[Rfam]
miR-430 microRNA precursor family: a 68-nucleotide RNA from Merluccius polli. Rfam links the family to the GO terms miRNA-mediated post-transcriptional gene silencing and RISC complex. NCBI's taxonomy places the organism under Eukaryota, Gnathostomata, Osteoglossocephalai, Merlucciidae, Merluccius. A search with the family's covariance model found it, with a score of 51 bits.
RNA sequence: CAGAUAACCUCAAAUAUAAGCAUUCAUGAUAUUUGGGUUCAUAAGUGCUUCUAUUUGGGGUUGUCUUA
Numbered sequence: 001c002a003g004a005u006a007a008c009c010u011c012a013a014a015u016a017u018a019a020g021c022a023u024u025c026a027u028g029a030u031a032u033u034u035g036g037g038u039u040c041a042u043a044a045g046u047g048c049u050u051c052u053a054u055u056u057g058g059g060g061u062u063g064u065c066u067u068a
Stems, first nucleotide, its partner, number of pairs: 004064008014055001016052001018050007026042003